Shown here is a 64-nucleotide sequence from Haloferax mucosum, a member of the family "eL15-Euryarchaeota ribosomal protein leader". The family's consensus secondary structure is taken from published work. Rfam classes the family as a cis-regulatory leader. For this family Rfam cites "Discovery of 20 novel ribosomal leader candidates in bacteria and archaea" (Eckert and Weinberg, BMC Microbiol, 2020). It is one of the family's seed sequences. Taxonomically the source falls in Haloferax mucosum (Archaea, Methanobacteriati, Methanobacteriota, Halobacteria).
[Rfam]
RNA sequence: CCCGUCACGAACGGGACGAAAUGUGGUCAUCGAGGGAGUGUCCCUCCACCGACUGAAUCGCAAG
Numbered sequence: 001c002c003c004g005u006c007a008c009g010a011a012c013g014g015g016a017c018g019a020a021a022u023g024u025g026g027u028c029a030u031c032g033a034g035g036g037a038g039u040g041u042c043c044c045u046c047c048a049c050c051g052a053c054u055g056a057a058u059c060g061c062a063a064g
Stems, first nucleotide, its partner, number of pairs: 001015005017060003025054004